[Rfam]
RNA sequence: GCCCUUGUAGCUCAGUUGGUAGAGCACCUGAUUUGUAAUCAGGGGGUCGCGGGUUCAAAUCCUGCCGGGGGCA
Numbered sequence: 001g002c003c004c005u006u007g008u009a010g011c012u013c014a015g016u017u018g019g020u021a022g023a024g025c026a027c028c029u030g031a032u033u034u035g036u037a038a039u040c041a042g043g044g045g046g047u048c049g050c051g052g053g054u055u056c057a058a059a060u061c062c063u064g065c066c067g068g069g070g071g072c073a
Stems, first nucleotide, its partner, number of pairs: 001072007010025004027043005049065005
RNA: tRNA
Organism: Parvibaculaceae bacterium